[Rfam]
Notes:
Rfam assigns this 84-nucleotide RNA from Bombyx mori to the family "mir-2807 microRNA precursor family". Rfam links the family to the GO terms RISC complex and miRNA-mediated post-transcriptional gene silencing. A reference for the family is Liu et al. (2010), "MicroRNAs of Bombyx mori identified by Solexa sequencing", BMC Genomics. The base pairs follow the family's consensus structure, which was predicted with RNAalifold. The organism belongs to Bombyx, within Eukaryota. Rfam 15.1 lists 5,120 matches to the family in 8 species.
RNA sequence: UUAACUCAAAUUUGUAUCCAGUUGGAACAGCGCCCCUAGCGGCAAACGUAGGCAAACGUUCCGUCUUCACACAAAUUUGAGUUA
Numbered sequence: 001u002u003a004a005c006u007c008a009a010a011u012u013u014g015u016a017u018c019c020a021g022u023u024g025g026a027a028c029a030g031c032g033c034c035c036c037u038a039g040c041g042g043c044a045a046a047c048g049u050a051g052g053c054a055a056a057c058g059u060u061c062c063g064u065c066u067u068c069a070c071a072c073a074a075a076u077u078u079g080a081g082u083u084a
Base pairs, nucleotide, nucleotide: 008078009077010076011075012074013073014072015071020066021065023063024062025061026060027059028058034052035051039047